A member of the RNA family "SAM-I/IV (S-adenosyl methionine) riboswitch aptamer" from Flavobacterium haoranii, 95 nucleotides long. On this family, see Trausch et al., PNAS 2014: "Structural basis for diversity in the SAM clan of riboswitches". A search with the family's covariance model found it, with a score of 52 bits. The base pairs follow the family's consensus structure, which is taken from published work.
RNA sequence: AUCCAGCAUCCAGAUAGCCUUAGGGCUAGCCAACCGAUCAACUCACGACACGGUGGCCUAGUAUGCGGAACAGUCGUUCAAAAGUGUUGAGAAAC
Numbered sequence: 001a002u003c004c005a006g007c008a009u010c011c012a013g014a015u016a017g018c019c020u021u022a023g024g025g026c027u028a029g030c031c032a033a034c035c036g037a038u039c040a041a042c043u044c045a046c047g048a049c050a051c052g053g054u055g056g057c058c059u060a061g062u063a064u065g066c067g068g069a070a071c072a073g074u075c076g077u078u079c080a081a082a083a084g085u086g087u088u089g090a091g092a093a094a095c
Stems, first nucleotide, its partner, number of pairs: 006066004015028005029057003034053003038048002043089001045087001068079004